Rfam assigns this 107-nucleotide RNA from Polaribacter pacificus to the family "Bacteroidales small SRP".
It is annotated as a non-coding RNA gene.
RNA sequence: UUUGCAGCGGCAAGUCCUACACAACUAGCUCCCUUUGAAUCCCCCAGGGCGGGAACGCAGCAAGGGUAUUAGGUUGUAGCAGUGUGAUGUAGGUAGCUUGCCUUUUU
Numbered sequence: 001u002u003u004g005c006a007g008c009g010g011c012a013a014g015u016c017c018u019a020c021a022c023a024a025c026u027a028g029c030u031c032c033c034u035u036u037g038a039a040u041c042c043c044c045c046a047g048g049g050c051g052g053g054a055a056c057g058c059a060g061c062a063a064g065g066g067u068a069u070u071a072g073g074u075u076g077u078a079g080c081a082g083u084g085u086g087a088u089g090u091a092g093g094u095a096g097c098u099u100g101c102c103u104u105u106u107u
Stems, first nucleotide, its partner, number of pairs: 009102007017092005022086002024083002